[Rfam]
RNA sequence: UGAAUGUGUCAGGUAGGCAGUGCAUCUCUAGCUGGCUGUUAAUAUUUCAUUUUAACAGUUGCUAGUUGCACUCCCCGCUGUUGCAUUCA
Numbered sequence: 001u002g003a004a005u006g007u008g009u010c011a012g013g014u015a016g017g018c019a020g021u022g023c024a025u026c027u028c029u030a031g032c033u034g035g036c037u038g039u040u041a042a043u044a045u046u047u048c049a050u051u052u053u054a055a056c057a058g059u060u061g062c063u064a065g066u067u068g069c070a071c072u073c074c075c076c077g078c079u080g081u082u083g084c085a086u087u088c089a
Stems, first nucleotide, its partner, number of pairs: 001089008010080003016074002019072006028065005034059001042053001

The family of this 89-nucleotide RNA sequence from Capra hircus is "mir-449 microRNA precursor family". Its family is annotated with RISC complex and miRNA-mediated post-transcriptional gene silencing in the Gene Ontology. Clan: mir-34 clan. A reference for the family is Linsen et al. (2010), "Small RNA expression and strain specificity in the rat", BMC Genomics. Lineage of the source: Eukaryota > Dipnotetrapodomorpha > Mammalia > Pecora > Capra.